[Rfam]
RNA: Group II catalytic intron D1-D4-1
Organism: Quisquiliibacterium transsilvanicum
RNA sequence: CGCCUUGCGCUUGAAAGGGCGACGGCGGUGAGCCGGAGCGAGAAGUCAGCAGAGGCCGUAGUAGCUGCCGGCACGGGGCGAAGGGC
Numbered sequence: 001c002g003c004c005u006u007g008c009g010c011u012u013g014a015a016a017g018g019g020c021g022a023c024g025g026c027g028g029u030g031a032g033c034c035g036g037a038g039c040g041a042g043a044a045g046u047c048a049g050c051a052g053a054g055g056c057c058g059u060a061g062u063a064g065c066u067g068c069c070g071g072c073a074c075g076g077g078g079c080g081a082a083g084g085g086c
Base pairs, nucleotide, nucleotide: 001027002026004024006022008021009020010019011018012017046053047052055086056085057084064079065078066077068075